Shown here is a 228-nucleotide RNA sequence from Parafrankia colletiae, a member of the family "c-di-AMP riboswitch aptamer (ydaO/yuaA leader)". A search with the family's covariance model found it, with a score of 67 bits.
RNA sequence: UGCCCCCAACCGCCGGAAACAGAAACCCGAUGGCAGGAGCGGGGGAACCAAAUCCCGGGCGCCGAUGUCAGGCGUCCUUGGGGUGAAGCCGCGAAGCUGACGACACCGAUGAAGAAAAUUCUUCCUCGCUGCCGAAGGCACAGGAUUUCCGGAGUUCCUGGCACGCGGCCGGGCUUGUUCCCUGCCCGAACCCGACAGCUCACCUCGCAGGCGUGGGGAAGGAAAACU
Dot-bracket structure: ..........((((.....(...............)..((((((....((............................))(((.....((((........................................................................))))..((((.........))))...))).........)))))).))))...............